RNA sequence: GAGCCUUAGAGAUCAAGUGUGGGUGUGGCCUGGGAUGCUUUAAUGGCGACCCAUCCUUGGUUUCUCCGGCUC
Numbered sequence: 001g002a003g004c005c006u007u008a009g010a011g012a013u014c015a016a017g018u019g020u021g022g023g024u025g026u027g028g029c030c031u032g033g034g035a036u037g038c039u040u041u042a043a044u045g046g047c048g049a050c051c052c053a054u055c056c057u058u059g060g061u062u063u064c065u066c067c068g069g070c071u072c
Base pairs, nucleotide, nucleotide: 002071003070004069005068009064010063011062012061013060014059016057017056021052022051023050024049028047029046030045
Record summary
The family of this 72-nucleotide RNA sequence from Silurus meridionalis is "mir-551 microRNA precursor family". For this family Rfam cites "Conservation of small RNA pathways in platypus" (Murchison et al., Genome Res, 2008). The family's consensus secondary structure was predicted with RNAalifold. The organism belongs to Silurus, within Eukaryota.